The family of this 82-nucleotide RNA from Acidaminobacter hydrogenoformans is "c-di-GMP-I riboswitch aptamer".
The family's consensus secondary structure is taken from published work.
Clan: c-di-GMP_I riboswitch clan.
Lineage of the source: Bacteria > Bacillati > Bacillota > Acidaminobacteraceae > Acidaminobacter hydrogenoformans.

[Rfam]
RNA sequence: CACAUACAAAGGCAAACCUGUCGAAAGUCAGGGGCGCAAAGCCCUGGGCCUAAAGCAAAACCAUGGUCGUCCGGCUGCUAUG
Numbered sequence: 001c002a003c004a005u006a007c008a009a010a011g012g013c014a015a016a017c018c019u020g021u022c023g024a025a026a027g028u029c030a031g032g033g034g035c036g037c038a039a040a041g042c043c044c045u046g047g048g049c050c051u052a053a054a055g056c057a058a059a060a061c062c063a064u065g066g067u068c069g070u071c072c073g074g075c076u077g078c079u080a081u082g
Base pairs, nucleotide, nucleotide: 012037013036017032018031019030020029022027040076041075042074043073046071047070048067049066050065055061